[Rfam]
Source information
This 184-nucleotide sequence from Trichonephila clavata belongs to the Rfam family "Wolbachia sRNA 46". The source organism's lineage runs through Eukaryota, Araneae, Araneoidea, Nephilidae and Trichonephila. The pairing is the family consensus, mapped onto this sequence.
RNA sequence: UUUGCAUCAAACACAAAGGUGUCAUUCCAGUGCUUGACACUGGAAUCCAGCCUUAAUGCAACCACAUUAAGCCGUUGUGUUUUAAUAUAAGAUUAGCUACUUUUAUAUUCACUAACUUGAUGUCUAAUCAAAAUUCCUGGAUCCAGUGUCUAGGCACUGGGAUGACAUCCUUCUAGUGUACAAU
Numbered sequence: 001u002u003u004g005c006a007u008c009a010a011a012c013a014c015a016a017a018g019g020u021g022u023c024a025u026u027c028c029a030g031u032g033c034u035u036g037a038c039a040c041u042g043g044a045a046u047c048c049a050g051c052c053u054u055a056a057u058g059c060a061a062c063c064a065c066a067u068u069a070a071g072c073c074g075u076u077g078u079g080u081u082u083u084a085a086u087a088u089a090a091g092a093u094u095a096g097c098u099a100c101u102u103u104u105a106u107a108u109u110c111a112c113u114a115a116c117u118u119g120a121u122g123u124c125u126a127a128u129c130a131a132a133a134u135u136c137c138u139g140g141a142u143c144c145a146g147u148g149u150c151u152a153g154g155c156a157c158u159g160g161g162a163u164g165a166c167a168u169c170c171u172u173c174u175a176g177u178g179u180a181c182a183a184u
Base pairs, nucleotide, nucleotide: 011179012178013177014176020167021166022165023164024163025162026161027160028159029158030157031156032155033154034153035152036150037149038148039147040146041145042144043143045142046141047140048139049138050137
By type it is a small RNA.
It scores 68 bits against the family's covariance model.